[Rfam]
RNA sequence: GGCGGAUUCCGCGUGGCGUGCAUCUUGUGAACUCCCCCAGGGCAGGAAUGCAGCAAGGGUCAACGAGCUCUCACGGGUGCGCGGGGUCCUUUUAU
Numbered sequence: 001g002g003c004g005g006a007u008u009c010c011g012c013g014u015g016g017c018g019u020g021c022a023u024c025u026u027g028u029g030a031a032c033u034c035c036c037c038c039a040g041g042g043c044a045g046g047a048a049u050g051c052a053g054c055a056a057g058g059g060u061c062a063a064c065g066a067g068c069u070c071u072c073a074c075g076g077g078u079g080c081g082c083g084g085g086g087u088c089c090u091u092u093u094a095u
Stems, first nucleotide, its partner, number of pairs: 004089010014077001017075004024067005034059003042051003
Bacterial small signal recognition particle RNA: a 95-nucleotide RNA sequence from Corynebacterium urealyticum. The base pairs follow the family's consensus structure, which is taken from published work. Gene Ontology terms of the family: signal recognition particle, plasma membrane targeting and SRP-dependent cotranslational protein targeting to membrane, signal sequence recognition. Lineage of the source: Bacteria > Bacillati > Actinomycetes > Corynebacteriaceae > Corynebacterium urealyticum. A search with the family's covariance model found it, with a score of 65 bits.